[Rfam]
RNA sequence: CAGCAAGGACGACCUUGCCGCUUCGAGCGCUCGGGGUGCACUCAUUCCAGGGGACGACCCCU
Numbered sequence: 001c002a003g004c005a006a007g008g009a010c011g012a013c014c015u016u017g018c019c020g021c022u023u024c025g026a027g028c029g030c031u032c033g034g035g036g037u038g039c040a041c042u043c044a045u046u047c048c049a050g051g052g053g054a055c056g057a058c059c060c061c062u
Base pairs, nucleotide, nucleotide: 001020003018004017005016006015007014008013049062050061051060052059053058
The family of this 62-nucleotide RNA from Pollutimonas harenae is "Guanidine-II riboswitch aptamer (mini-ykkC)". The match comes from Rfam's covariance-model search (34 bits). The literature on the family includes a 2007 paper in Nucleic Acids Res by Weinberg et al., "Identification of 22 candidate structured RNAs in bacteria using the CMfinder comparative genomics pipeline". The organism belongs to Pollutimonas, within Bacteria. From the family's description: Simpler in structure and has fewer highly conserved nucleotide positions than the ykkC-yxkD leader. Despite this each of its two stem-loop structures directly bind free guanidine. Therefore, mini-ykkC RNA motif represents a distinct class of guanidine-sensing RNAs. Its crystal structure was also determined.